[Rfam]
The family of this 86-nucleotide RNA sequence from Loxodonta africana is "Selenocysteine transfer RNA". For this family Rfam cites "tRNAscan-SE: a program for improved detection of transfer RNA genes in genomic sequence" (Lowe and Eddy, Nucleic Acids Res, 1997). Lineage of the source: Eukaryota > Metazoa > Deuterostomia > Eutheria > Loxodonta. Rfam links the family to the GO term triplet codon-amino acid adaptor activity.
RNA sequence: ACCCGACUGAUCCUCAGUAGUCUGGGGCACAGGUUUCAAACCUGUAGAUGUCUGGCAACAGAGUGGUUCAAUUCCACCUUCCAGGU
Numbered sequence: 001a002c003c004c005g006a007c008u009g010a011u012c013c014u015c016a017g018u019a020g021u022c023u024g025g026g027g028c029a030c031a032g033g034u035u036u037c038a039a040a041c042c043u044g045u046a047g048a049u050g051u052c053u054g055g056c057a058a059c060a061g062a063g064u065g066g067u068u069c070a071a072u073u074c075c076a077c078c079u080u081c082c083a084g085g086u
Stems, first nucleotide, its partner, number of pairs: 001086003005082001009078001012027006029045005049060003063077004